[Rfam]
Rfam assigns this 97-nucleotide sequence to the family "PhotoRC-II RNA". Rfam's curators put it in the seed alignment.
RNA sequence: ACCCAUUGUGCAACUGCUCUCAAACCAAGACCUAUAGGCAGUAUAAUACUUCGUCUUUCUAUCCAGUAGUGAGGGAUUACUGGAAAUAAGUUUCGCA
Numbered sequence: 001a002c003c004c005a006u007u008g009u010g011c012a013a014c015u016g017c018u019c020u021c022a023a024a025c026c027a028a029g030a031c032c033u034a035u036a037g038g039c040a041g042u043a044u045a046a047u048a049c050u051u052c053g054u055c056u057u058u059c060u061a062u063c064c065a066g067u068a069g070u071g072a073g074g075g076a077u078u079a080c081u082g083g084a085a086a087u088a089a090g091u092u093u094c095g096c097a
Stems, first nucleotide, its partner, number of pairs: 013042005019037002027057005062084007